[Rfam]
RNA sequence: GGAUUAUGAUGACUACUUUCAGAUUGGUCUCGUUCGUCGUAAUGGUGAUAGCCACCUUGCCGACCAUCCUGAUAUAUCACCACCCAUAAACUGAGUCC
Numbered sequence: 001g002g003a004u005u006a007u008g009a010u011g012a013c014u015a016c017u018u019u020c021a022g023a024u025u026g027g028u029c030u031c032g033u034u035c036g037u038c039g040u041a042a043u044g045g046u047g048a049u050a051g052c053c054a055c056c057u058u059g060c061c062g063a064c065c066a067u068c069c070u071g072a073u074a075u076a077u078c079a080c081c082a083c084c085c086a087u088a089a090a091c092u093g094a095g096u097c098c
Base pairs, nucleotide, nucleotide: 001098002097003096004095047058048057
RNA: Small nucleolar RNA Z43